A member of the RNA family "Trypanosomatid snoRNA TB11Cs5H3" from Trypanosoma conorhini, 64 nucleotides long. On this family, see Myslyuk et al., BMC Bioinformatics 2008: "Psiscan: a computational approach to identify H/ACA-like and AGA-like non-coding RNA in trypanosomatid genomes". Rfam 15.1 lists 12 matches to the family in 11 species. NCBI's taxonomy places the organism under Eukaryota, Discoba, Euglenozoa, Trypanosomatidae, Trypanosoma.
RNA sequence: AGGCCUGUUCGAAGGCCCUUCACUCACCUGCUAUGAGUGGGCGUGGUUCAAAAACGGGCCGAGA
Numbered sequence: 001a002g003g004c005c006u007g008u009u010c011g012a013a014g015g016c017c018c019u020u021c022a023c024u025c026a027c028c029u030g031c032u033a034u035g036a037g038u039g040g041g042c043g044u045g046g047u048u049c050a051a052a053a054a055c056g057g058g059c060c061g062a063g064a
Stems, first nucleotide, its partner, number of pairs: 002060008017046002020040006